[Rfam]
RNA sequence: CACGUCGACUCUGGAGAGCGGCCGGUUCCAGCCGGCCCACCGAAGGGGCUUAAAGACUCUCAGGUCACCGGACAGAGGGGCGAUG
Numbered sequence: 001c002a003c004g005u006c007g008a009c010u011c012u013g014g015a016g017a018g019c020g021g022c023c024g025g026u027u028c029c030a031g032c033c034g035g036c037c038c039a040c041c042g043a044a045g046g047g048g049c050u051u052a053a054a055g056a057c058u059c060u061c062a063g064g065u066c067a068c069c070g071g072a073c074a075g076a077g078g079g080g081c082g083a084u085g
Stems, first nucleotide, its partner, number of pairs: 006080001009077005020037004039065003042061002046059003
RNA: Glycine riboswitch aptamer
Organism: Sulfurifustis variabilis